RNA sequence: AACAGAGUAGGGCCAAUGCGUUAAGUGCUGUGAAAUGGGAUGUCGUUCACAGACGAAACUUGAGUUUUUCAAGUGCGGUAGAGGCUUGCAUCCGCUGAU
Numbered sequence: 001a002a003c004a005g006a007g008u009a010g011g012g013c014c015a016a017u018g019c020g021u022u023a024a025g026u027g028c029u030g031u032g033a034a035a036u037g038g039g040a041u042g043u044c045g046u047u048c049a050c051a052g053a054c055g056a057a058a059c060u061u062g063a064g065u066u067u068u069u070c071a072a073g074u075g076c077g078g079u080a081g082a083g084g085c086u087u088g089c090a091u092c093c094g095c096u097g098a099u
Stems, first nucleotide, its partner, number of pairs: 001099001003097003010087005017080002019077003025054002028052007038093005058074006